[Rfam]
RNA: mir-9/mir-79 microRNA precursor family
Organism: Armadillidium nasatum
RNA sequence: UGUGCUUCAUCUUUGGUGAUCUAGCUGUGUGAGAGUAUUAAUUUCAUAAAGCUAGAAUACCAAAGUUAAAGCAGU
Numbered sequence: 001u002g003u004g005c006u007u008c009a010u011c012u013u014u015g016g017u018g019a020u021c022u023a024g025c026u027g028u029g030u031g032a033g034a035g036u037a038u039u040a041a042u043u044u045c046a047u048a049a050a051g052c053u054a055g056a057a058u059a060c061c062a063a064a065g066u067u068a069a070a071g072c073a074g075u
Base pairs, nucleotide, nucleotide: 003073004072005071007069009067011065012064013063014062015061016060017059018058020056021055022054023053024052025051026050028048029047030046031045032044033043